Shown here is a 116-nucleotide RNA from Zingiber officinale, a member of the family "Small nucleolar RNA Z278". The family has 7 seed sequences and 1,130 matches in Rfam 15.1. Its family is annotated with nucleolus and RNA processing in the Gene Ontology. Pairs were carried over by alignment from the consensus structure, which was predicted with PFOLD. The organism belongs to Zingiber, within Eukaryota. A reference for the family is Chen et al. (2003), "The high diversity of snoRNAs in plants: identification and comparative study of 120 snoRNA genes from Oryza sativa", Nucleic Acids Res. About the family: snoZ278 is a C/D box small nucleolar RNA. Its methylation guide targets have not been reported.
RNA sequence: GCCUUUGAUGAUAUAUCCACAUUUUUGAGUUGCAGGUGGCGCAGAGUCCUUGUUUUUGCAGGGAGAACCUCUUGGAGUUCCUGCAUUUCAUAUGACUUUUCUGGAUUUUCUGAGGC
Numbered sequence: 001g002c003c004u005u006u007g008a009u010g011a012u013a014u015a016u017c018c019a020c021a022u023u024u025u026u027g028a029g030u031u032g033c034a035g036g037u038g039g040c041g042c043a044g045a046g047u048c049c050u051u052g053u054u055u056u057u058g059c060a061g062g063g064a065g066a067a068c069c070u071c072u073u074g075g076a077g078u079u080c081c082u083g084c085a086u087u088u089c090a091u092a093u094g095a096c097u098u099u100u101c102u103g104g105a106u107u108u109u110c111u112g113a114g115g116c
Stems, first nucleotide, its partner, number of pairs: 001116003048063005